[Rfam]
Notes:
The record is a 125-nucleotide RNA from Cavia porcellus, which matches "Small nucleolar RNA SNORA28" in Rfam. The family's RNA type in Rfam is H/ACA-box small nucleolar RNA. ACA28 is a member of the H/ACA class of snoRNA that guide the sites of modification of uridines to pseudouridines. NCBI's taxonomy places the organism under Eukaryota, Eumetazoa, Deuterostomia, Glires, Cavia. A reference for the family is Huttenhofer et al. (2001), "RNomics: an experimental approach that identifies 201 candidates for novel, small, non-messenger RNAs in mouse", EMBO J. Gene Ontology terms of the family: nucleolus and RNA processing.

RNA sequence: AAGCAAUACACUGUAACAGAUUAUCAAAAUAGUUGGCACAAUUUGAGCUUGCUCCAACAAAAAAGUCAAACCUAUUUGGGCAUUCUCACCUCUGUGACACAGGCCCUUGCAUAUACUUAAACAGG
Numbered sequence: 001a002a003g004c005a006a007u008a009c010a011c012u013g014u015a016a017c018a019g020a021u022u023a024u025c026a027a028a029a030u031a032g033u034u035g036g037c038a039c040a041a042u043u044u045g046a047g048c049u050u051g052c053u054c055c056a057a058c059a060a061a062a063a064a065g066u067c068a069a070a071c072c073u074a075u076u077u078g079g080g081c082a083u084u085c086u087c088a089c090c091u092c093u094g095u096g097a098c099a100c101a102g103g104c105c106c107u108u109g110c111a112u113a114u115a116c117u118u119a120a121a122c123a124g125g
Stems, first nucleotide, its partner, number of pairs: 009047001011045001012040003017035002020033003063118004069112001073111001075109001078106004086099001089096001